[Rfam]
RNA sequence: CUCUUAUCCAGAGAGGCGGAGGGACUGGCCCGAUGAAGCCCGGCAACCAGCAGCAGAUGCUGCAAGGUGCCAAUUCCAACAAGGUGAAAGCCUUGAAAGAUGAGAG
Numbered sequence: 001c002u003c004u005u006a007u008c009c010a011g012a013g014a015g016g017c018g019g020a021g022g023g024a025c026u027g028g029c030c031c032g033a034u035g036a037a038g039c040c041c042g043g044c045a046a047c048c049a050g051c052a053g054c055a056g057a058u059g060c061u062g063c064a065a066g067g068u069g070c071c072a073a074u075u076c077c078a079a080c081a082a083g084g085u086g087a088a089a090g091c092c093u094u095g096a097a098a099g100a101u102g103a104g105a106g
Base pairs, nucleotide, nucleotide: 001106002105003104004103005102006101007100008099013041015040016039017038021031022030023029026078027077028076042071043070044069045068047067048066050063051062052061053060075098080095081094082093083092084091085090
Dot-bracket structure: ((((((((....(.(((...(((..[[[)))......))))((((.((.((((......))))..))))))...(]]].((((((....))))))..)))))))))